[Rfam]
Annotation:
A member of the RNA family "Small nucleolar RNA psi28S-3316" from Drosophila pseudoobscura, 141 nucleotides long.
RNA sequence: AGCACCUAAAAGCGUUUUCUUGCCAGCCCAAUAAAUGCUCUUGAAAAUCGUUGAUGUGUGCCAGACAAAACUUCUCGCAACAGCAAAGUGAUCGGAGUUCCAUUCAUUGAUGACUCUGGUCCGUUUACGUUGUGAACACCA
Numbered sequence: 001a002g003c004a005c006c007u008a009a010a011a012g013c014g015u016u017u018u019c020u021u022g023c024c025a026g027c028c029c030a031a032u033a034a035a036u037g038c039u040c041u042u043g044a045a046a047a048u049c050g051u052u053g054a055u056g057u058g059u060g061c062c063a064g065a066c067a068a069a070a071c072u073u074c075u076c077g078c079a080a081c082a083g084c085a086a087a088g089u090g091a092u093c094g095g096a097g098u099u100c101c102a103u104u105c106a107u108u109g110a111u112g113a114c115u116c117u118g119g120u121c122c123g124u125u126u127a128c129g130u131u132g133u134g135a136a137c138a139c140c141a
Stems, first nucleotide, its partner, number of pairs: 002061004006056001012051003015047005022038002025036001075135007086126005091120004096115004
Rfam classes the family as an H/ACA-box small nucleolar RNA. The family's consensus secondary structure was predicted with RNAfold. Rfam's curators put it in the seed alignment. Lineage of the source: Eukaryota > Bilateria > Arthropoda > Hexapoda > Drosophila pseudoobscura.